[Rfam]
RNA sequence: GGAAAAGGAAGAUCUACUAAGACCGCCGCUUUGCGCGGCAACGUCGACCCACCCGCGAUGCGCGGG
Numbered sequence: 001g002g003a004a005a006a007g008g009a010a011g012a013u014c015u016a017c018u019a020a021g022a023c024c025g026c027c028g029c030u031u032u033g034c035g036c037g038g039c040a041a042c043g044u045c046g047a048c049c050c051a052c053c054c055g056c057g058a059u060g061c062g063c064g065g066g
Stems, first nucleotide, its partner, number of pairs: 011049001013047002016044002025039005052066005
Notes:
Shown here is a 66-nucleotide RNA sequence from Virgibacillus salinus, a member of the family "Bacillaceae-1 RNA". Rfam classes the family as a small RNA. The match comes from Rfam's covariance-model search (38 bits).